Source information:
A member of the RNA family "DUF805b RNA" from Hyunsoonleella pacifica, 39 nucleotides long. It scores 38 bits against the family's covariance model.
[Rfam]
RNA sequence: AAGGCGCAACCGAAAAGCCUAUUUUAAAUAGAGUAGGGA
Number, nucleotide and partner (000 for none) at each position: 001a000002a020003g019004g018005c017006g000007c000008a000009a000010c037011c036012g000013a000014a000015a000016a000017g005018c004019c003020u002021a000022u000023u000024u000025u000026a000027a000028a000029u000030a000031g000032a000033g000034u000035a000036g011037g010038g000039a000

The family is grouped with related families in Rfam's "DUF805 clan". Pairs were carried over by alignment from the consensus structure, which is taken from published work. NCBI's taxonomy places the organism under Bacteria, Pseudomonadati, Flavobacteriia, Flavobacteriales, Hyunsoonleella.